RNA sequence: UAGAACUAAAAGACCUAUCAGUCAAAUGAGAGGGUUAACACCUUGAAGGGCUGACGAUGAUACUCCGAACUGCAAUAAAUUGAUUAAGUAAUUUAUUGUAGUAAGCUCGGUGAAGUCGGGUGAGAGUUGUCGUAAUCAUACGAAAAUUAUUCAGCGGUGGAUAAUGCAACUUAUAGCUCGGUCGCCCAUAAA
Numbered sequence: 001u002a003g004a005a006c007u008a009a010a011a012g013a014c015c016u017a018u019c020a021g022u023c024a025a026a027u028g029a030g031a032g033g034g035u036u037a038a039c040a041c042c043u044u045g046a047a048g049g050g051c052u053g054a055c056g057a058u059g060a061u062a063c064u065c066c067g068a069a070c071u072g073c074a075a076u077a078a079a080u081u082g083a084u085u086a087a088g089u090a091a092u093u094u095a096u097u098g099u100a101g102u103a104a105g106c107u108c109g110g111u112g113a114a115g116u117c118g119g120g121u122g123a124g125a126g127u128u129g130u131c132g133u134a135a136u137c138a139u140a141c142g143a144a145a146a147u148u149a150u151u152c153a154g155c156g157g158u159g160g161a162u163a164a165u166g167c168a169a170c171u172u173a174u175a176g177c178u179c180g181g182u183c184g185c186c187c188a189u190a191a192a
Base pairs, nucleotide, nucleotide: 018054019053020052021051022050023049031044032043033042034041055184056183057182058181065110066109067108068107069102070101071100072099073098074097075096076095077094078093079092080091081090082089117180118179119178120177121176125171126170127169128168129167130166131142132141133140146165147164148163149162150161151160152159153158